[Rfam]
RNA sequence: AUCAUCAGUAGUGGUUAAUACUAUCUCAAGAUAAUAUUAAUUACAUUUUCCUAGAAACCUAUCAUCCAUUAUUUGAUCUUUUGCUGUGUGCGCAUGUUCGCAUGUGCAUGCACGAGUUGAUACUGGGGUCAAGUAGUGGAUGCGAUUUUAACCCAUAGCUGAGCGGGUUCUGACCGGCCCCAAACAAGCCGGGCACAGUUCCCACUUCGUUUCGGUUUCUUAGAUUAAAACUGCUAUGGGAGGGUCUAGAUUUGGCCGGCUACGGCCGGACGGUCUGGAAGACGCAUGUGUGCAGACGGCGGCUAGCACCCGUCGAGUUGCGCUCUGUUGUGCCCUCUCCCAUGCCAGGACAUUU
Number, nucleotide and partner (000 for none) at each position: 001a000002u000003c000004a000005u000006c000007a000008g049009u000010a047011g046012u045013g044014g041015u040016u039017a038018a037019u036020a035021c000022u033023a032024u031025c030026u000027c000028a000029a000030g025031a024032u023033a022034a000035u020036a019037u018038u017039a016040a015041u014042u000043a000044c013045a012046u011047u010048u000049u008050c000051c000052u000053a220054g219055a218056a217057a216058c215059c214060u000061a000062u000063c000064a000065u140066c139067c138068a137069u136070u135071a134072u133073u132074u131075g130076a129077u000078c128079u127080u126081u125082u000083g000084c000085u114086g113087u112088g111089u000090g000091c106092g105093c104094a103095u102096g101097u000098u000099c000100g000101c096102a095103u094104g093105u092106g091107c000108a000109u000110g000111c088112a087113c086114g085115a124116g123117u122118u000119g000120a000121u000122a117123c116124u115125g081126g080127g079128g078129u076130c075131a074132a073133g072134u071135a070136g069137u068138g067139g066140a065141u000142g000143c000144g000145a000146u000147u000148u000149u000150a000151a000152c000153c000154c000155a000156u000157a000158g000159c000160u000161g207162a206163g205164c000165g203166g202167g201168u000169u000170c198171u197172g196173a000174c192175c191176g190177g189178c188179c000180c000181c000182a000183a000184a000185c000186a000187a000188g178189c177190c176191g175192g174193g000194c000195a000196c172197a171198g170199u000200u000201c167202c166203c165204a000205c163206u162207u161208c000209g000210u000211u000212u000213c000214g059215g058216u057217u056218u055219c054220u053221u000222a000223g000224a000225u000226u000227a000228a000229a000230a000231c348232u347233g346234c000235u344236a000237u342238g341239g340240g339241a338242g337243g336244g335245u279246c278247u277248a276249g275250a274251u273252u000253u000254g000255g000256c000257c000258g000259g000260c000261u000262a000263c000264g000265g000266c000267c000268g000269g000270a000271c000272g000273g251274u250275c249276u248277g247278g246279a245280a000281g334282a000283c000284g000285c332286a331287u330288g329289u000290g000291u322292g321293c320294a319295g318296a000297c312298g311299g310300c000301g000302g307303c000304u000305a000306g000307c302308a000309c000310c299311c298312g297313u000314c000315g000316a000317g000318u295319u294320g293321c292322g291323c000324u000325c000326u000327g000328u000329u288330g287331u286332g285333c000334c281335c244336u243337c242338u241339c240340c239341c238342a237343u000344g235345c000346c233347a232348g231349g000350a000351c000352a000353u000354u000355u000
RNA: Small nucleolar RNA snR37